[Rfam]
RNA: Bacterial RNase P class A
RNA sequence: GAGGCGAGCCAGACCGCCGCUGGUACACCGGCCGAAAGGCUGUACUGGAGGAAGGUCCGGACUGCACAGGGCAACGCAGCAGCUAACGGCUGCCCGCCGAGGGCCGAAAGGCGCGAAGGCGAGGAUCAGAGCAACAGAGACGAGCCGAUUCAGUUCGGGUGAAACGGGCAAUCUCUGCGCGCAGCAACAUCAAGUAGGCGGACGUCGACCUGGCCCGGGGAGUCCGCGGGUAGAUGGCAUCGAGCCGUGCUGGCGACAGCCGGCCCAGACGAAUGGCGGUCACGGCGCACAGGCUCGCAAGGGCUCGUGCGACGCACAGAAUCCGGCCUAUCGGCUCGCCUCACAU
Number, nucleotide and partner (000 for none) at each position: 001g342002a341003g340004g339005c338006g337007a336008g335009c334010c333011a331012g281013a280014c279015c278016g277017c276018c275019g000020c048021u047022g046023g045024u044025a043026c042027a041028c000029c000030g000031g000032c000033c000034g000035a000036a000037a000038g000039g000040c000041u027042g026043u025044a024045c023046u022047g021048g020049a000050g000051g000052a000053a329054g328055g327056u000057c326058c325059g324060g323061a322062c184063u183064g182065c181066a000067c000068a000069g216070g215071g214072c213073a000074a000075c179076g178077c177078a176079g093080c092081a091082g090083c089084u000085a000086a000087c000088g000089g083090c082091u081092g080093c079094c123095c121096g120097c119098c118099g000100a000101g000102g000103g000104c000105c000106g000107a000108a000109a000110g000111g000112c000113g000114c000115g000116a000117a000118g098119g097120c096121g095122a000123g094124g175125a174126u000127c000128a000129g173130a172131g169132c168133a000134a000135c000136a000137g000138a000139g000140a000141c000142g000143a000144g000145c158146c157147g156148a155149u000150u000151c000152a000153g000154u000155u148156c147157g146158g145159g000160u000161g000162a000163a000164a000165c000166g000167g000168g132169c131170a000171a000172u130173c129174u125175c124176u078177g077178c076179g075180c000181g065182c064183a063184g062185c000186a000187a000188c236189a235190u234191c233192a000193a000194g000195u000196a000197g000198g227199c226200g225201g224202a223203c222204g000205u000206c000207g000208a000209c219210c218211u217212g000213g072214c071215c070216c069217g211218g210219g209220g000221a000222g203223u202224c201225c200226g199227c198228g000229g000230g000231u000232a000233g191234a190235u189236g188237g000238c000239a000240u000241c000242g000243a000244g264245c263246c262247g261248u000249g260250c259251u258252g257253g000254c000255g000256a000257c252258a251259g250260c249261c247262g246263g245264c244265c000266c000267a000268g000269a000270c000271g000272a000273a000274u000275g018276g017277c016278g015279g014280u013281c012282a000283c000284g000285g000286c000287g000288c000289a000290c000291a000292g000293g000294c000295u000296c000297g000298c000299a000300a000301g000302g000303g000304c000305u000306c000307g000308u000309g000310c000311g000312a000313c000314g000315c000316a000317c000318a000319g000320a000321a000322u061323c060324c059325g058326g057327c055328c054329u053330a000331u011332c000333g010334g009335c008336u007337c006338g005339c004340c003341u002342c001343a000344c000345a000346u000